Notes:
DUF3800-I RNA: a 125-nucleotide RNA. It is annotated as a small RNA. Rfam describes the family as follows. Actinobacteria, Firmicutes, Fusobacteria, Proteobacteria (1 example), Tenericutes (2 examples). It is one of the family's seed sequences.
RNA sequence: UAGAGUUGCAGGGAGUUUGAACUCGGCUGCGAACCUAAGAUAAGCGAGACUAAACCUUAAGCGACUUGUAAAGUCGCCGCCCUUAGGGGGAGUCGUCUAAUGCUAGACGGCUCUUUUUUUGUAAA
Numbered sequence: 001u002a003g004a005g006u007u008g009c010a011g012g013g014a015g016u017u018u019g020a021a022c023u024c025g026g027c028u029g030c031g032a033a034c035c036u037a038a039g040a041u042a043a044g045c046g047a048g049a050c051u052a053a054a055c056c057u058u059a060a061g062c063g064a065c066u067u068g069u070a071a072a073g074u075c076g077c078c079g080c081c082c083u084u085a086g087g088g089g090g091a092g093u094c095g096u097c098u099a100a101u102g103c104u105a106g107a108c109g110g111c112u113c114u115u116u117u118u119u120u121g122u123a124a125a
Base pairs, nucleotide, nucleotide: 007031008030009029010028011027013024014023015022016021034087035086036085037084038083039082044080045079046078047057048056061077062076063075064074065073066072088115089114090113091112092111093110094109095108096107097106098105099104
Dot-bracket structure: ......(((((.((((....))))..)))))..((((((....(((((.......))...((((((.....))))))))).))))))((((((((((((....))))))))))))..........